[Rfam]
The record is a 190-nucleotide sequence from Rhizobacter gummiphilus, which matches "Manganese Mn2+ riboswitch aptamer (yybP-ykoY)" in Rfam. The family has 29 seed sequences and 1,126 matches in Rfam 15.1. About the family: This RNA was originally discovered in E. coli during a large scale screen and was named SraF. The family was later found to exist upstream of related families of protein genes in many bacteria, including the the yybP and ykoK genes in B. subtilis. The specific functions of these proteins are unknown, but this structured RNA element may be involved in their genetic regulation as a riboswitch. The match comes from Rfam's covariance-model search (87 bits).
RNA sequence: CUUCCCGUCAUUGGGGAGUAGCUGACCGCCACGCGCAACGUGUGGCGGGGCCCGCGUCAACACACUUGGCCCUCACGGCCAUGGCGCGGGCAGUGGAACACCCACCUGGCAAGACCUUUGACUGCACGCCUUCCGGAACAAGGGCCGGGCGGGUGUGCGGUCGUCUUGGUUGUCAGGCCCUGGAGUGUUC
Numbered sequence: 001c002u003u004c005c006c007g008u009c010a011u012u013g014g015g016g017a018g019u020a021g022c023u024g025a026c027c028g029c030c031a032c033g034c035g036c037a038a039c040g041u042g043u044g045g046c047g048g049g050g051c052c053c054g055c056g057u058c059a060a061c062a063c064a065c066u067u068g069g070c071c072c073u074c075a076c077g078g079c080c081a082u083g084g085c086g087c088g089g090g091c092a093g094u095g096g097a098a099c100a101c102c103c104a105c106c107u108g109g110c111a112a113g114a115c116c117u118u119u120g121a122c123u124g125c126a127c128g129c130c131u132u133c134c135g136g137a138a139c140a141a142g143g144g145c146c147g148g149g150c151g152g153g154u155g156u157g158c159g160g161u162c163g164u165c166u167u168g169g170u171u172g173u174c175a176g177g178c179c180c181u182g183g184a185g186u187g188u189u190c
Base pairs, nucleotide, nucleotide: 026048027047028046029045030044031043032042033041050091051090052089053088054087055086056085057084058083059082067081068080069079070078071077092189093188094187095186